[Rfam]
Nucleotides: 092
Base pairs, nucleotide, nucleotide: 001092002091003090004089005088006087007086008085011026012025013024014023015022016021027045028044029043030042031041032040047065048064049063050062051061069083070082071081072080
Number, partner (000 for none) and nucleotide at each position: 001092g002091g003090a004089a005088g006087g007086c008085a009000c010000a011026c012025g013024u014023a015022u016021c017000c018000g019000g020000u021016g022015g023014u024013g025012c026011g027045g028044g029043c030042g031041g032040g033000c034000u035000u036000c037000a038000a039000a040032c041031c042030c043029g044028u045027c046000a047065g048064g049063g050062g051061a052000u053000g054000u055000c056000u057000a058000u059000c060000a061051u062050u063049c064048u065047c066000u067000c068000g069083u070082a071081a072080g073000u074000u075000c076000g077000a078000c079000u080072c081071u082070u083069a084000c085008u086007g087006u088005c089004u090003u091002c092001c